Rfam assigns this 133-nucleotide sequence from Acinonyx jubatus to the family "Small nucleolar RNA SNORA3/SNORA45 family". Its Rfam clan is "SNORA3 clan". NCBI's taxonomy places the organism under Eukaryota, Gnathostomata, Dipnotetrapodomorpha, Tetrapoda, Acinonyx. About the family: The members of this family belong to the H/ACA class of snoRNAs which are thought to guide the sites of modification of uridines to pseudouridines. This family includes mouse snoMBI-28 and human homologues ACA3 (SNORA3) and ACA3-2 (SNORA45). Both ACA3 and ACA3-2 share the same host gene. The family's RNA type in Rfam is H/ACA-box small nucleolar RNA. The base pairs follow the family's consensus structure, which was predicted with RNAalifold.
[Rfam]
RNA sequence: AUCCUGUAGAGAGUCCCAUCCUGACAUAGUUCUUAUCCUGAUGUGCUAGAGUUUUCAGAGAGAGAGUCUGCUGGUCUUGAAUCACCAGCGAGGGUAGGCAGCACCCGCAGUGGUGCCCACAUCAGAAACAUGC
Number, nucleotide and partner (000 for none) at each position: 001a000002u060003c000004c058005u057006g056007u000008a053009g052010a000011g000012a047013g046014u000015c045016c000017c043018a042019u041020c040021c000022u000023g037024a036025c000026a034027u000028a000029g000030u000031u000032c000033u000034u026035a000036u024037c023038c000039u000040g020041a019042u018043g017044u000045g015046c013047u012048a000049g000050a000051g000052u009053u008054u000055u000056c006057a005058g004059a000060g002061a000062g000063a000064g000065a000066g000067u000068c000069u000070g000071c125072u124073g123074g122075u121076c000077u119078u000079g117080a000081a000082u000083c115084a114085c113086c112087a111088g000089c000090g108091a000092g106093g105094g104095u103096a000097g000098g000099c000100a000101g000102c000103a095104c094105c093106c092107g000108c090109a000110g000111u087112g086113g085114u084115g083116c000117c079118c000119a077120c000121a075122u074123c073124a072125g071126a000127a000128a000129c000130a000131u000132g000133c000